The family of this 74-nucleotide RNA from Bacillus phage Belinda is "Pistol ribozyme". The base pairs follow the family's consensus structure, which is taken from published work. Lineage of the source: Viruses > Duplodnaviria > Uroviricota > Bastillevirinae > Wphvirus.
RNA sequence: AACUGUCUGGACAGUGACGAAAGUCAAAGGGCAUUAAGUCCAGAGCGUCCCACCUAAUAAGGGUGGGGGUUGCC
Numbered sequence: 001a002a003c004u005g006u007c008u009g010g011a012c013a014g015u016g017a018c019g020a021a022a023g024u025c026a027a028a029g030g031g032c033a034u035u036a037a038g039u040c041c042a043g044a045g046c047g048u049c050c051c052a053c054c055u056a057a058u059a060a061g062g063g064u065g066g067g068g069g070u071u072g073c074c
Stems, first nucleotide, its partner, number of pairs: 002015003006044006030074004038046001048068008
It scores 35 bits against the family's covariance model.